R2 RNA element: a 190-nucleotide RNA from Agrilus planipennis.
Gene Ontology term of the family: regulation of reverse transcription.
The family has 15 seed sequences and 3,698 matches in Rfam 15.1.
From the family's description: This family represents the 3' UTR region of the R2 retrotransposable element.
[Rfam]
RNA sequence: AUAUAGAUAUAAAUUGGUAUCUUCGGUACCCUGUUUUCUUAGGCUGAAGAGGACCCUAGUUGGUCCUAGAAUGGCCUGAGGUAGAGGGGUUUUAGUCGGUAGGUCCGAGGACUUCUUCCUCGGGAAUCCGACGCUACCCAGUGGUACCGACGGCUGGGUGUCUUUUGACGAUUUCCCCUCUUCCACAAAA
Numbered sequence: 001a002u003a004u005a006g007a008u009a010u011a012a013a014u015u016g017g018u019a020u021c022u023u024c025g026g027u028a029c030c031c032u033g034u035u036u037u038c039u040u041a042g043g044c045u046g047a048a049g050a051g052g053a054c055c056c057u058a059g060u061u062g063g064u065c066c067u068a069g070a071a072u073g074g075c076c077u078g079a080g081g082u083a084g085a086g087g088g089g090u091u092u093u094a095g096u097c098g099g100u101a102g103g104u105c106c107g108a109g110g111a112c113u114u115c116u117u118c119c120u121c122g123g124g125a126a127u128c129c130g131a132c133g134c135u136a137c138c139c140a141g142u143g144g145u146a147c148c149g150a151c152g153g154c155u156g157g158g159u160g161u162c163u164u165u166u167g168a169c170g171a172u173u174u175c176c177c178c179u180c181u182u183c184c185a186c187a188a189a190a
Base pairs, nucleotide, nucleotide: 014189015188017186018185080184081183083181084180086177087176088175095132096131097130098129099128104124105123106122107121108120109119110118111117134160136159137158138157139156140155